[Rfam]
RNA sequence: AUAGGUAUUAGAGUUAAUCGCUUGCGUUAGCAAGAGGAAAGUCCGGGCUCCACAGAGCGAAAAGGGUAGCUAACGGCUACUAAAGGAAACUUUAAGGAAAGUGCCACAGAAAAUAGACCGCUACAUUUUGUAGUAAGGGUGAAAAGGCGGUGUAAGAGACCACCAGUUCUUUAGGAGACUAAAGAAGCUAGGUAAACCCCCUUUGGAGCAAGACUAAAUAGGAGAGAAUAGGGGCUGCUCGUCCUCUCUCAGGGUAAGUUGCUUGAAGCUAUAAGCAAUUAUAGCUCUAGAUAAAUGAUUGACAAAUACAAAACCCGGCUUAUUUAAUGCCUAUCAAU
Numbered sequence: 001a002u003a004g005g006u007a008u009u010a011g012a013g014u015u016a017a018u019c020g021c022u023u024g025c026g027u028u029a030g031c032a033a034g035a036g037g038a039a040a041g042u043c044c045g046g047g048c049u050c051c052a053c054a055g056a057g058c059g060a061a062a063a064g065g066g067u068a069g070c071u072a073a074c075g076g077c078u079a080c081u082a083a084a085g086g087a088a089a090c091u092u093u094a095a096g097g098a099a100a101g102u103g104c105c106a107c108a109g110a111a112a113a114u115a116g117a118c119c120g121c122u123a124c125a126u127u128u129u130g131u132a133g134u135a136a137g138g139g140u141g142a143a144a145a146g147g148c149g150g151u152g153u154a155a156g157a158g159a160c161c162a163c164c165a166g167u168u169c170u171u172u173a174g175g176a177g178a179c180u181a182a183a184g185a186a187g188c189u190a191g192g193u194a195a196a197c198c199c200c201c202u203u204u205g206g207a208g209c210a211a212g213a214c215u216a217a218a219u220a221g222g223a224g225a226g227a228a229u230a231g232g233g234g235c236u237g238c239u240c241g242u243c244c245u246c247u248c249u250c251a252g253g254g255u256a257a258g259u260u261g262c263u264u265g266a267a268g269c270u271a272u273a274a275g276c277a278a279u280u281a282u283a284g285c286u287c288u289a290g291a292u293a294a295a296u297g298a299u300u301g302a303c304a305a306a307u308a309c310a311a312a313a314c315c316c317g318g319c320u321u322a323u324u325u326a327a328u329g330c331c332u333a334u335c336a337a338u
Base pairs, nucleotide, nucleotide: 001334002333003332004331005330006329007328008327009326010325011323013303014302015301016300017299018298019297021034022033023032024031025030039321040320041319043318044317045316046315047314048208049207050206051205057239061204062203063202064201065200066080067079068078069077070076081095082093083092084091085090096199097198101197102196103193104192105191118138119137120134121133122132123131124130125129146164147163149161150160151159166188167186168185169184170183171182172181173180174179212260213259214258215257222250223249224248225247226246231245232244233243234242235241267286268285269284270283271282272281273280274279